RNA: DABA-DC-AT RNA
Organism: Vibrio sediminis
RNA sequence: GCAAUCUCGGAGCAGUUCCAUAACUGAAAUUUCUGGGGGAUACGCGAGGCGACCAUUAAAGCUGGUGCCGUCUCGUAGGGUAGGUACCAGCCAUAGCUAAUGGACUGGUAGACGGGAUACUUUGCUCUGCUGAUUAAGAGCUAUAGACGGAUUUUUUGUACCUCUUGGAUAUAGCGAAUAGGCGGCAUUAAAUUGGGAAACCCAACA
Numbered sequence: 001g002c003a004a005u006c007u008c009g010g011a012g013c014a015g016u017u018c019c020a021u022a023a024c025u026g027a028a029a030u031u032u033c034u035g036g037g038g039g040a041u042a043c044g045c046g047a048g049g050c051g052a053c054c055a056u057u058a059a060a061g062c063u064g065g066u067g068c069c070g071u072c073u074c075g076u077a078g079g080g081u082a083g084g085u086a087c088c089a090g091c092c093a094u095a096g097c098u099a100a101u102g103g104a105c106u107g108g109u110a111g112a113c114g115g116g117a118u119a120c121u122u123u124g125c126u127c128u129g130c131u132g133a134u135u136a137a138g139a140g141c142u143a144u145a146g147a148c149g150g151a152u153u154u155u156u157u158g159u160a161c162c163u164c165u166u167g168g169a170u171a172u173a174g175c176g177a178a179u180a181g182g183c184g185g186c187a188u189u190a191a192a193u194u195g196g197g198a199a200a201c202c203c204a205a206c207a
Stems, first nucleotide, its partner, number of pairs: 006037006044076008053065003085110006091103004128187005